This 75-nucleotide RNA from Micromonospora chalcea belongs to the Rfam family "ASpks TB sRNA". The source organism's lineage runs through Bacteria, Bacillati, Actinomycetes, Micromonosporaceae and Micromonospora. Rfam's curators put it in the seed alignment.

RNA sequence: CUUGACCGAGCCCAGCCACAGCGGCUGGCCCGUGGGCCGGUCCUGCCCGUACGUGGCCAGGAGCGCCUGCGCCUC
Numbered sequence: 001c002u003u004g005a006c007c008g009a010g011c012c013c014a015g016c017c018a019c020a021g022c023g024g025c026u027g028g029c030c031c032g033u034g035g036g037c038c039g040g041u042c043c044u045g046c047c048c049g050u051a052c053g054u055g056g057c058c059a060g061g062a063g064c065g066c067c068u069g070c071g072c073c074u075c
Stems, first nucleotide, its partner, number of pairs: 014026004031071003038065002043060003047056003